[Rfam]
RNA sequence: CGACCGCCGAUGUACAGUCGGCUGAGGCCAUACGGACAGCCGGGUCGAAUGCCGA
Numbered sequence: 001c002g003a004c005c006g007c008c009g010a011u012g013u014a015c016a017g018u019c020g021g022c023u024g025a026g027g028c029c030a031u032a033c034g035g036a037c038a039g040c041c042g043g044g045u046c047g048a049a050u051g052c053c054g055a
Stems, first nucleotide, its partner, number of pairs: 001047005006022006
RNA: Streptococcus sRNA SpF59 (ldcC RNA)